[Rfam]
Source information
This 70-nucleotide sequence from Polypterus senegalus belongs to the Rfam family "Small nucleolar RNA SNORD75". A reference for the family is Galardi et al. (2002), "Purified box C/D snoRNPs are able to reproduce site-specific 2'-O-methylation of target RNA in vitro", Mol Cell Biol. The family's consensus secondary structure was predicted with RNAalifold. NCBI's taxonomy places the organism under Eukaryota, Vertebrata, Teleostomi, Euteleostomi, Polypterus. The family's RNA type in Rfam is C/D-box small nucleolar RNA.
RNA sequence: AGCCAAUGAUGAUGAAAAUUGUAUAAGAGUAGUGGACAGAAGUGAUUUCUGAAAAAACAUACCUGAGGCU
Number, nucleotide and partner (000 for none) at each position: 001a070002g069003c068004c067005a000006a000007u000008g000009a000010u000011g000012a000013u000014g000015a000016a000017a000018a000019u000020u000021g000022u000023a000024u000025a000026a000027g000028a000029g000030u000031a000032g000033u000034g000035g000036a000037c000038a000039g000040a000041a000042g000043u000044g000045a000046u000047u000048u000049c000050u000051g000052a000053a000054a000055a000056a000057a000058c000059a000060u000061a000062c000063c000064u000065g000066a000067g004068g003069c002070u001